[Rfam]
RNA sequence: CACUGAGGUGAUGAUCAUUAUUUCUGAAACUAUGCUUGUUGACUUCUUAAUUCAGACUACAAUUAUCUGAUCAAUG
Numbered sequence: 001c002a003c004u005g006a007g008g009u010g011a012u013g014a015u016c017a018u019u020a021u022u023u024c025u026g027a028a029a030c031u032a033u034g035c036u037u038g039u040u041g042a043c044u045u046c047u048u049a050a051u052u053c054a055g056a057c058u059a060c061a062a063u064u065a066u067c068u069g070a071u072c073a074a075u076g
Stems, first nucleotide, its partner, number of pairs: 001076002004073003
Shown here is a 76-nucleotide RNA from Cucurbita maxima, a member of the family "Small nucleolar RNA Z155". For this family Rfam cites "The high diversity of snoRNAs in plants: identification and comparative study of 120 snoRNA genes from Oryza sativa" (Chen et al., Nucleic Acids Res, 2003). Pairs were carried over by alignment from the consensus structure. Taxonomically the source falls in Cucurbita (Eukaryota, Streptophytina, Embryophyta, rosids). The family's RNA type in Rfam is C/D-box small nucleolar RNA. Gene Ontology terms of the family: RNA processing and nucleolus.